[Rfam]
RNA: Small nucleolar SNORD12/SNORD106
RNA sequence: GGUGGUGUAAGUGAUGACUGAAUUUUUUCCCCAUCAGAGCGACAGUGUUGAUUCUCACUGUUCAAGCCAGAUCAUGUCUGAUGCACCAUC
Numbered sequence: 001g002g003u004g005g006u007g008u009a010a011g012u013g014a015u016g017a018c019u020g021a022a023u024u025u026u027u028u029c030c031c032c033a034u035c036a037g038a039g040c041g042a043c044a045g046u047g048u049u050g051a052u053u054c055u056c057a058c059u060g061u062u063c064a065a066g067c068c069a070g071a072u073c074a075u076g077u078c079u080g081a082u083g084c085a086c087c088a089u090c
Base pairs, nucleotide, nucleotide: 001090002089003088004087005086006085007084008083009082